[Rfam]
RNA: Small nucleolar RNA Z107/R87
Organism: Momordica charantia
RNA sequence: GAUGGCUUUGAUGAUUCAUGAAAAGAUCAAGCUCAACAGACCGGAAUGCAGGUUUCCAUUUGGAAUCUUGCGUGUCGAUUACUCUCGAAACUGAGCCAUC
Dot-bracket structure: ((((((........................................................................................))))))